[Rfam]
This 80-nucleotide RNA from Branchiostoma belcheri belongs to the Rfam family "mir-46/mir-47/mir-281 microRNA precursor family". A reference for the family is Lai et al. (2003), "Computational identification of Drosophila microRNA genes", Genome Biol. The organism belongs to Branchiostoma, within Eukaryota.

RNA sequence: CGCCUCUGUGCGGAAGGGAGAGCCUUUCCGUGACUGUCGAACUUCGGGAACACUGUCAUGGAGUUGCUCUCUUUUCCGCG
Numbered sequence: 001c002g003c004c005u006c007u008g009u010g011c012g013g014a015a016g017g018g019a020g021a022g023c024c025u026u027u028c029c030g031u032g033a034c035u036g037u038c039g040a041a042c043u044u045c046g047g048g049a050a051c052a053c054u055g056u057c058a059u060g061g062a063g064u065u066g067c068u069c070u071c072u073u074u075u076c077c078g079c080g
Stems, first nucleotide, its partner, number of pairs: 015073004020068001026062003032057003036053002